[Rfam]
RNA sequence: GAAUAGGAAAAGGGGAGCUAAAUGAAUUUGGCUGAGAGGGAGCUAUUCUGCUCCGACCCAUAACCUGAUCUGGAUAAUGCCAGCGGAGGGAAAAAUAUAUGGAUGAAC
Numbered sequence: 001g002a003a004u005a006g007g008a009a010a011a012g013g014g015g016a017g018c019u020a021a022a023u024g025a026a027u028u029u030g031g032c033u034g035a036g037a038g039g040g041a042g043c044u045a046u047u048c049u050g051c052u053c054c055g056a057c058c059c060a061u062a063a064c065c066u067g068a069u070c071u072g073g074a075u076a077a078u079g080c081c082a083g084c085g086g087a088g089g090g091a092a093a094a095a096u097a098u099a100u101g102g103a104u105g106a107a108c
Base pairs, nucleotide, nucleotide: 006096012059013058014057017032018031019030020029021028039054040053041052042051043050064089065088066087070083071082072081073080

This 108-nucleotide RNA from Thermotalea metallivorans belongs to the Rfam family "TPP riboswitch aptamer (THI element)". The source organism's lineage runs through Bacteria, Bacillota, Peptostreptococcales, Thermotaleaceae and Thermotalea.